[Rfam]
RNA sequence: CAAGACGAUCCAGUUAGCGUGUUUUUUCGCCUGUUAUUUAAGGUCAUUAACCUUGAAAUAUUUGAGGGAUGACCUCAUUUAAUCUCCAGUAGCAUUUUGACCUUUACAGGAGGAAUUAUGCGUCUGGAUCGUCUUAC
Numbered sequence: 001c002a003a004g005a006c007g008a009u010c011c012a013g014u015u016a017g018c019g020u021g022u023u024u025u026u027u028c029g030c031c032u033g034u035u036a037u038u039u040a041a042g043g044u045c046a047u048u049a050a051c052c053u054u055g056a057a058a059u060a061u062u063u064g065a066g067g068g069a070u071g072a073c074c075u076c077a078u079u080u081a082a083u084c085u086c087c088a089g090u091a092g093c094a095u096u097u098u099g100a101c102c103u104u105u106a107c108a109g110g111a112g113g114a115a116u117u118a119u120g121c122g123u124c125u126g127g128a129u130c131g132u133c134u135u136a137c
Stems, first nucleotide, its partner, number of pairs: 002135011017121003021117001023115001024042003051067006068079004083113005089107003
Shown here is a 137-nucleotide RNA sequence from Winslowiella iniecta, a member of the family "Yersinia sRNA 155(RyfD)". Rfam classes the family as a small RNA. The pairing is the family consensus, mapped onto this sequence. It scores 94 bits against the family's covariance model. The sRNA was identified by and is confirmed to have a stable secondary structure by using genome-wide structure probing at different temperatures. The function is unknown.